[Rfam]
RNA sequence: UCGGCAAUCACACUAUAGCCUUCCCGCCUACGUCUUCGGAUAGGGUGUGCUGGCCGCAGCCAUCGAGCUGCCAGGGUGCAGAAAGAAAUGCCUGCAUCUCCCGAAUUUGGAAAGGUGUACUGGUGCCACAAUU
Number, nucleotide and partner (000 for none) at each position: 001u000002c000003g127004g124005c000006a000007a000008u000009c000010a118011c117012a116013c115014u114015a000016u000017a000018g054019c053020c052021u000022u000023c049024c000025c047026g046027c045028c044029u000030a000031c000032g041033u040034c039035u000036u000037c000038g000039g034040a033041u032042a000043g000044g028045g027046u026047g025048u000049g023050c000051u000052g020053g019054c018055c000056g071057c070058a069059g068060c067061c000062a000063u000064c000065g000066a000067g060068c059069u058070g057071c056072c000073a000074g099075g098076g097077u096078g095079c094080a093081g092082a000083a000084a089085g000086a000087a000088a000089u084090g000091c000092c081093u080094g079095c078096a077097u076098c075099u074100c110101c109102c000103g000104a000105a000106u000107u000108u000109g101110g100111a000112a000113a000114g014115g013116u012117g011118u010119a000120c000121u000122g000123g000124u004125g000126c000127c003128a000129c000130a000131a000132u000133u000